[Rfam]
Shown here is an 84-nucleotide sequence from Brassica rapa, a member of the family "Small nucleolar RNA R160". For this family Rfam cites "The high diversity of snoRNAs in plants: identification and comparative study of 120 snoRNA genes from Oryza sativa" (Chen et al., Nucleic Acids Res, 2003). A search with the family's covariance model found it, with a score of 51 bits.
RNA sequence: AGCAUGAUGAUGAGAAACAAAUAGCCUCUGAAAUUAAAAUUCAUGUGGAUUAUAUUACAUACCUUCAAAGUUCUCUGAAUUGCU
Numbered sequence: 001a002g003c004a005u006g007a008u009g010a011u012g013a014g015a016a017a018c019a020a021a022u023a024g025c026c027u028c029u030g031a032a033a034u035u036a037a038a039a040u041u042c043a044u045g046u047g048g049a050u051u052a053u054a055u056u057a058c059a060u061a062c063c064u065u066c067a068a069a070g071u072u073c074u075c076u077g078a079a080u081u082g083c084u
Base pairs, nucleotide, nucleotide: 001084002083003082004081
Annotation
Lineage of the source: Eukaryota > Viridiplantae > Streptophyta > malvids > Brassica. From the family's description: snoR160 is a C/D box small nucleolar RNA, which acts as a methylation guide for 25S ribosomal RNA in plants. snoR160 has been alternatively named snoZ270 in rice.